[Rfam]
RNA sequence: UAAAAGGGUCGGUUGGCUAAAUAUGCCACGCUCACCCAUUGAAUGGUGAGUGCUGUAUGGCUAUCAAGACAUAUGGCUGACAUAAUUUGUGGGAAGUUAUAGGGUUGGCUCCCUUUGGCCGACCCUCCA
Numbered sequence: 001u002a003a004a005a006g007g008g009u010c011g012g013u014u015g016g017c018u019a020a021a022u023a024u025g026c027c028a029c030g031c032u033c034a035c036c037c038a039u040u041g042a043a044u045g046g047u048g049a050g051u052g053c054u055g056u057a058u059g060g061c062u063a064u065c066a067a068g069a070c071a072u073a074u075g076g077c078u079g080a081c082a083u084a085a086u087u088u089g090u091g092g093g094a095a096g097u098u099a100u101a102g103g104g105u106u107g108g109c110u111c112c113c114u115u116u117g118g119c120c121g122a123c124c125c126u127c128c129a
Stems, first nucleotide, its partner, number of pairs: 008081005014028004029052008053076007101126008112118002
Rfam assigns this 129-nucleotide RNA sequence from Helianthus annuus to the family "U11 spliceosomal RNA". It is annotated as a spliceosomal small nuclear RNA. Taxonomically the source falls in Helianthus (Eukaryota, Mesangiospermae, Asteraceae, Heliantheae alliance).